[Rfam]
This 125-nucleotide RNA from Chrysochloris asiatica belongs to the Rfam family "Small nucleolar RNA SNORA32". A search with the family's covariance model found it, with a score of 99 bits.
Nucleotides: 125
Base pairs, nucleotide, nucleotide: 003053004052005051006050007049010046011045012044026041028039070118071117072116073115077111078110079109080108088104090102
Number, partner (000 for none) and nucleotide at each position: 001000u002000g003053g004052u005051c006050a007049u008000u009000a010046c011045c012044a013000a014000g015000g016000c017000u018000u019000u020000u021000a022000g023000a024000a025000u026041g027000c028039a029000u030000u031000u032000u033000c034000u035000g036000a037000u038000u039028u040000u041026c042000u043000g044012u045011g046010g047000a048000c049007a050006u051005g052004g053003c054000u055000a056000u057000u058000a059000a060000a061000c062000a063000a064000a065000a066000a067000c068000u069000u070118c071117c072116c073115a074000g075000u076000a077111g078110g079109u080108u081000u082000u083000g084000u085000c086000u087000u088104u089000a090102c091000u092000a093000c094000c095000u096000u097000g098000c099000u100000u101000a102090g103000c104088a105000u106000u107000c108080a109079a110078u111077c112000u113000a114000u115073u116072g117071g118070g119000g120000a121000c122000a123000u124000u125000u
Record summary: The family's consensus secondary structure was predicted with RNAfold. ACA32 is a member of the H/ACA class of snoRNA that guide the sites of modification of uridines to pseudouridines. Gene Ontology terms of the family: RNA processing and nucleolus.